[Rfam]
RNA sequence: GGUCAUGAGUGUCAGCGUCAAAGCCCCGGCUUGCUGGCCGGCAACCCUCCAACCGCGGUGGGGUGCCCCGGGUGAGAAGACCUGGUUAGUCGACUGCGUUCGCGUAGUCGGAGAACAAGCGCGGGUU
Number, nucleotide and partner (000 for none) at each position: 001g082002g081003u080004c079005a000006u000007g000008a000009g039010u000011g038012u037013c036014a035015g034016c033017g000018u000019c000020a000021a000022a031023g030024c000025c000026c000027c000028g000029g000030c023031u022032u000033g016034c015035u014036g013037g012038c011039c009040g067041g066042c065043a000044a000045c063046c062047c061048u000049c058050c057051a000052a000053c000054c000055g000056c000057g050058g049059u000060g000061g047062g046063g045064u000065g042066c041067c040068c000069c000070g000071g000072g000073u000074g000075a000076g000077a000078a000079g004080a003081c002082c001083u000084g000085g116086u115087u114088a000089g000090u111091c110092g109093a108094c107095u106096g105097c104098g103099u000100u000101c000102g000103c098104g097105u096106a095107g094108u093109c092110g091111g090112a000113g000114a087115a086116c085117a000118a000119g000120c000121g000122c000123g000124g000125g000126u000127u000